[Rfam]
RNA sequence: AUACGCAAGCAGAAGCACCCGCUUCUCACCUGAUUGACGCUAAAAUGCAGUUGGCAGGUAUACGAGAUCGAAUCAAUUAUUUUUGAAAUCGUAGUGUGGGUGUUUUGUGCACCCGCACUUUUUUAUUUGC
Numbered sequence: 001a002u003a004c005g006c007a008a009g010c011a012g013a014a015g016c017a018c019c020c021g022c023u024u025c026u027c028a029c030c031u032g033a034u035u036g037a038c039g040c041u042a043a044a045a046u047g048c049a050g051u052u053g054g055c056a057g058g059u060a061u062a063c064g065a066g067a068u069c070g071a072a073u074c075a076a077u078u079a080u081u082u083u084u085g086a087a088a089u090c091g092u093a094g095u096g097u098g099g100g101u102g103u104u105u106u107g108u109g110c111a112c113c114c115g116c117a118c119u120u121u122u123u124u125a126u127u128u129g130c
Stems, first nucleotide, its partner, number of pairs: 011026006028059003036052003039048002095117009
About this RNA:
Shown here is a 130-nucleotide RNA from Metabacillus lacus, a member of the family "Ribosomal protein L20 leader". Gene Ontology term of the family: regulation of gene expression. Rfam classes the family as a cis-regulatory leader. NCBI's taxonomy places the organism under Bacteria, Bacillota, Caryophanales, Bacillaceae, Metabacillus.